[Rfam]
Nucleotides: 106
Stems, first nucleotide, its partner, number of pairs: 007093003011056004017034005041050003061086004067080004
Number, partner (000 for none) and nucleotide at each position: 001000c002000u003000c004000g005000c006000a007093g008092u009091g010000c011056a012055c013054g014053g015000g016000a017034g018033c019032c020031c021030g022000g023000u024000u025000a026000c027000g028000g029000c030021c031020g032019g033018g034017c035000u036000g037000a038000g039000a040000g041050g042049g043048a044000g045000a046000a047000u048043u049042c050041c051000g052000a053014c054013c055012g056011u057000c058000g059000a060000a061086c062085c063084u064083g065000a066000u067080c068079u069078g070077g071000g072000u073000c074000a075000u076000g077070c078069c079068a080067g081000c082000g083064c084063a085062g086061g087000a088000a089000g090000u091009c092008a093007c094000c095000g096000g097000a098000c099000c100000g101000c102000g103000u104000c105000g106000u